[Rfam]
RNA sequence: GAGAAUAAUGGACGCGAGGGAACUCGGCCAAAUAGCUCCGUAUCUUAGGUAUAAGGAGUGCCUGUUCCGAGAGGGAACAGGUCGCAGUGGCAAGGGGACCCCGACUGUUUACCAAAAACACAGGGCCGCUGCAAGUUCGAAAGGAUGUGUAUAGCGGUCGAAACCUGCCCAGUGUCGGUACCUGAAAGUCCCUUUCAAGGGAAAGUAGGGCCGAUAAACGGCGGGGGUAACUAUGACCCUCUUAAGGUAGCGUAAUACCUAGCCGCUUAAUUGGCGGCUUGCAUGAAGGUUCAACGAGAGUCCCACUGUCCCCGCGUUCAGCCUCGUGAAAUUGAUGCACUGGUGCACAAUCCAGUCU
Numbered sequence: 001g002a003g004a005a006u007a008a009u010g011g012a013c014g015c016g017a018g019g020g021a022a023c024u025c026g027g028c029c030a031a032a033u034a035g036c037u038c039c040g041u042a043u044c045u046u047a048g049g050u051a052u053a054a055g056g057a058g059u060g061c062c063u064g065u066u067c068c069g070a071g072a073g074g075g076a077a078c079a080g081g082u083c084g085c086a087g088u089g090g091c092a093a094g095g096g097g098a099c100c101c102c103g104a105c106u107g108u109u110u111a112c113c114a115a116a117a118a119c120a121c122a123g124g125g126c127c128g129c130u131g132c133a134a135g136u137u138c139g140a141a142a143g144g145a146u147g148u149g150u151a152u153a154g155c156g157g158u159c160g161a162a163a164c165c166u167g168c169c170c171a172g173u174g175u176c177g178g179u180a181c182c183u184g185a186a187a188g189u190c191c192c193u194u195u196c197a198a199g200g201g202a203a204a205g206u207a208g209g210g211c212c213g214a215u216a217a218a219c220g221g222c223g224g225g226g227g228u229a230a231c232u233a234u235g236a237c238c239c240u241c242u243u244a245a246g247g248u249a250g251c252g253u254a255a256u257a258c259c260u261a262g263c264c265g266c267u268u269a270a271u272u273g274g275c276g277g278c279u280u281g282c283a284u285g286a287a288g289g290u291u292c293a294a295c296g297a298g299a300g301u302c303c304c305a306c307u308g309u310c311c312c313c314g315c316g317u318u319c320a321g322c323c324u325c326g327u328g329a330a331a332u333u334g335a336u337g338c339a340c341u342g343g344u345g346c347a348c349a350a351u352c353c354a355g356u357c358u
Stems, first nucleotide, its partner, number of pairs: 001325003009320008018311003035059005044049001060082009083087001095304005101298001102296002106120003124159008132149001135146004162291004167222003172219002174215005181210003189202004223241006242246001262278006339356005

Shown here is a 358-nucleotide part of an RNA from Thermoplasmatales archaeon E-plasma, a member of the family "Archaeal large subunit ribosomal RNA".
It scores 2733 bits against the family's covariance model.
Clan: LSU clan.